RNA sequence: UAGCAUGUUUCCAAGGACUGUGGUCGACUAUGGCCAUAGGAUCUCCAGUUGCAUGUGAGAGCAACCUGCGGCAGCUCUGACAGCACAGGUCUGGGUAACAUCUACCUGCAGCUGCUAGAAUGGCUCAAGGC
Numbered sequence: 001u002a003g004c005a006u007g008u009u010u011c012c013a014a015g016g017a018c019u020g021u022g023g024u025c026g027a028c029u030a031u032g033g034c035c036a037u038a039g040g041a042u043c044u045c046c047a048g049u050u051g052c053a054u055g056u057g058a059g060a061g062c063a064a065c066c067u068g069c070g071g072c073a074g075c076u077c078u079g080a081c082a083g084c085a086c087a088g089g090u091c092u093g094g095g096u097a098a099c100a101u102c103u104a105c106c107u108g109c110a111g112c113u114g115c116u117a118g119a120a121u122g123g124c125u126c127a128a129g130g131c
Stems, first nucleotide, its partner, number of pairs: 011039001016035001018033005068126001070124001072122002083115002086108004